[Rfam]
RNA: THF (Tetrahydrofolate) riboswitch aptamer
RNA sequence: AACAGAGCAGGUAUUAUGCGUCAAGUGUCAGAGAAUGGGAGUAGAGUCUCUGAACGAAAAACCAUGGAAACAUGGUUUGCGAUAUAAUACCGCAUCCGCUGUU
Numbered sequence: 001a002a003c004a005g006a007g008c009a010g011g012u013a014u015u016a017u018g019c020g021u022c023a024a025g026u027g028u029c030a031g032a033g034a035a036u037g038g039g040a041g042u043a044g045a046g047u048c049u050c051u052g053a054a055c056g057a058a059a060a061a062c063c064a065u066g067g068a069a070a071c072a073u074g075g076u077u078u079g080c081g082a083u084a085u086a087a088u089a090c091c092g093c094a095u096c097c098g099c100u101g102u103u
Base pairs, nucleotide, nucleotide: 001103002102003101004100005099010091011090012089013088014087015086016085017084018083019081020080021079025055026054028053029052030051031050032049033048034047038097039096041093059078060077061076062075063074064073065072